[Rfam]
RNA sequence: GUGGAUAUGGCGAAGUGGUUAACGCACCGGAUUGUGGCUCCGGCACUCGUGGGUUCAAGUCCCAUUAUCCACC
Numbered sequence: 001g002u003g004g005a006u007a008u009g010g011c012g013a014a015g016u017g018g019u020u021a022a023c024g025c026a027c028c029g030g031a032u033u034g035u036g037g038c039u040c041c042g043g044c045a046c047u048c049g050u051g052g053g054u055u056c057a058a059g060u061c062c063c064a065u066u067a068u069c070c071a072c073c
Stems, first nucleotide, its partner, number of pairs: 001072007010025003027043005049065005
The family of this 73-nucleotide RNA from Desulfosporosinus orientis is "tRNA". Rfam links the family to the GO term triplet codon-amino acid adaptor activity. The family's RNA type in Rfam is transfer RNA. It scores 63 bits against the family's covariance model. Taxonomically the source falls in Desulfosporosinus orientis (Bacteria, Bacillati, Bacillota, Desulfosporosinus).